[Rfam]
A member of the RNA family "J750 non-coding RNA (containing SLSL761 and SL783)" from Orthohepacivirus hominis, 113 nucleotides long. Lineage of the source: Viruses > Orthornavirae > Kitrinoviricota > Hepaciviridae > Orthohepacivirus hominis. Rfam's curators put it in the seed alignment. The literature on the family includes a 2015 paper in Proc Natl Acad Sci U S A by Mauger et al., "Functionally conserved architecture of hepatitis C virus RNA genomes".
RNA sequence: AUCCCGCUCGUAGGCGCCCCCGUGGGUAGCGUCGCCAGGGCCCUGGCACAUGGUGUCAGGGCUUUGGAGGACGGGAUCAAUUAUGCAACAGGGAAUCUCCCCGGUUGCUCCUU
Numbered sequence: 001a002u003c004c005c006g007c008u009c010g011u012a013g014g015c016g017c018c019c020c021c022g023u024g025g026g027u028a029g030c031g032u033c034g035c036c037a038g039g040g041c042c043c044u045g046g047c048a049c050a051u052g053g054u055g056u057c058a059g060g061g062c063u064u065u066g067g068a069g070g071a072c073g074g075g076a077u078c079a080a081u082u083a084u085g086c087a088a089c090a091g092g093g094a095a096u097c098u099c100c101c102c103g104g105u106u107g108c109u110c111c112u113u
Stems, first nucleotide, its partner, number of pairs: 001077005008071002013033005019026002035067015085108005091102003